[Rfam]
RNA sequence: GCCCGUAUGAUCCUCGGUGGUCCGAGGUGCAGGCUUCAAACUUGUAGCCGGUUAGCGCCGGAGUGGUUCGAUUCCACCUUGCGGGU
Numbered sequence: 001g002c003c004c005g006u007a008u009g010a011u012c013c014u015c016g017g018u019g020g021u022c023c024g025a026g027g028u029g030c031a032g033g034c035u036u037c038a039a040a041c042u043u044g045u046a047g048c049c050g051g052u053u054a055g056c057g058c059c060g061g062a063g064u065g066g067u068u069c070g071a072u073u074c075c076a077c078c079u080u081g082c083g084g085g086u
Stems, first nucleotide, its partner, number of pairs: 001086007009078001012027006028046006048061005063077004